[Rfam]
RNA sequence: AAAGAAAUACGGUAGGUGAGGUUACCGCAGGGAUUUGGAAUUCCUAAGAUUGCUGCCGCAAAGUUGUGGAGACACAACUCGUUGGUCAACAGAUGAAGUCGUGAAGGCUUUAUUUAAUGCAAUUCAUAUGCCCUGCGAUACUAAAGCUUGAACGGUGGUAUAAGAAU
Numbered sequence: 001a002a003a004g005a006a007a008u009a010c011g012g013u014a015g016g017u018g019a020g021g022u023u024a025c026c027g028c029a030g031g032g033a034u035u036u037g038g039a040a041u042u043c044c045u046a047a048g049a050u051u052g053c054u055g056c057c058g059c060a061a062a063g064u065u066g067u068g069g070a071g072a073c074a075c076a077a078c079u080c081g082u083u084g085g086u087c088a089a090c091a092g093a094u095g096a097a098g099u100c101g102u103g104a105a106g107g108c109u110u111u112a113u114u115u116a117a118u119g120c121a122a123u124u125c126a127u128a129u130g131c132c133c134u135g136c137g138a139u140a141c142u143a144a145a146g147c148u149u150g151a152a153c154g155g156u157g158g159u160a161u162a163a164g165a166a167u
Stems, first nucleotide, its partner, number of pairs: 007161004011153001013105001015148003020142003026137007049123005056084001058082002065076004092114004098108003